[Rfam]
RNA sequence: UAUUAGAUUGGUGCAAAAGUUAUUGCGGUUUUUGCCAUUGCUUUCAGUGGCAAAAACCGCAAUAACUUUUGCAUCAACCUAAUA
Numbered sequence: 001u002a003u004u005a006g007a008u009u010g011g012u013g014c015a016a017a018a019g020u021u022a023u024u025g026c027g028g029u030u031u032u033u034g035c036c037a038u039u040g041c042u043u044u045c046a047g048u049g050g051c052a053a054a055a056a057c058c059g060c061a062a063u064a065a066c067u068u069u070u071g072c073a074u075c076a077a078c079c080u081a082a083u084a
Stems, first nucleotide, its partner, number of pairs: 001084006008077033
RNA: mir-548 microRNA precursor family
Organism: Pan troglodytes